[Rfam]
RNA sequence: AACGUCGUAUGCGACUGGCGAAGAGAGUGGAAUGAACCACGAGGAAGCAUACGAUCGGAAACGAUCCGUUCGCCUGGGAAAAGUAU
Numbered sequence: 001a002a003c004g005u006c007g008u009a010u011g012c013g014a015c016u017g018g019c020g021a022a023g024a025g026a027g028u029g030g031a032a033u034g035a036a037c038c039a040c041g042a043g044g045a046a047g048c049a050u051a052c053g054a055u056c057g058g059a060a061a062c063g064a065u066c067c068g069u070u071c072g073c074c075u076g077g078g079a080a081a082a083g084u085a086u
Stems, first nucleotide, its partner, number of pairs: 004055009015044002017074005027040004065079003